[Rfam]
RNA sequence: AUGACGACACGGGGAGAGACUACUUGAAUGUAGCGCCGAAGGAGCAAGCAAUAAAAUUGUGAAUCUCUCAGGCAAAAAGACUCUUGUUUGACG
Numbered sequence: 001a002u003g004a005c006g007a008c009a010c011g012g013g014g015a016g017a018g019a020c021u022a023c024u025u026g027a028a029u030g031u032a033g034c035g036c037c038g039a040a041g042g043a044g045c046a047a048g049c050a051a052u053a054a055a056a057u058u059g060u061g062a063a064u065c066u067c068u069c070a071g072g073c074a075a076a077a078a079g080a081c082u083c084u085u086g087u088u089u090g091a092c093g
Stems, first nucleotide, its partner, number of pairs: 006088004011083003020033004035073003038069002042067003048060002
Glycine riboswitch aptamer: a 93-nucleotide sequence from Priestia megaterium. The base pairs follow the family's consensus structure. About the family: This family represents the bacterial glycine riboswitch. It scores 66 bits against the family's covariance model.